RNA sequence: UGGCGUCGGUGAUGUUCUACAAUUACCUACAUUGUUUGAUCCCUGUGAAAACACCACCGGCUGAGACGCCU
Numbered sequence: 001u002g003g004c005g006u007c008g009g010u011g012a013u014g015u016u017c018u019a020c021a022a023u024u025a026c027c028u029a030c031a032u033u034g035u036u037u038g039a040u041c042c043c044u045g046u047g048a049a050a051a052c053a054c055c056a057c058c059g060g061c062u063g064a065g066a067c068g069c070c071u
Stems, first nucleotide, its partner, number of pairs: 002070001004068004
RNA: Small nucleolar RNA SNORD34